[Rfam]
RNA sequence: ACUGAUCUUCGGGGCAGGUGAAAUUCCUGACCGGCGGUAACGCACCUUACAGGAGCGAAGCCCGCGACUCUCUAAGCCGACAGCGGCAAGGGGACUGAUCUGGUGAAAAUCCAGAGCCGACGGUUAAAGUCCGGAUGGGAGAAGGUCGCC
Numbered sequence: 001a002c003u004g005a006u007c008u009u010c011g012g013g014g015c016a017g018g019u020g021a022a023a024u025u026c027c028u029g030a031c032c033g034g035c036g037g038u039a040a041c042g043c044a045c046c047u048u049a050c051a052g053g054a055g056c057g058a059a060g061c062c063c064g065c066g067a068c069u070c071u072c073u074a075a076g077c078c079g080a081c082a083g084c085g086g087c088a089a090g091g092g093g094a095c096u097g098a099u100c101u102g103g104u105g106a107a108a109a110u111c112c113a114g115a116g117c118c119g120a121c122g123g124u125u126a127a128a129g130u131c132c133g134g135a136u137g138g139g140a141g142a143a144g145g146u147c148g149c150c
Stems, first nucleotide, its partner, number of pairs: 003148008016028003030130002032119002034065004060117002069094005099115005121133003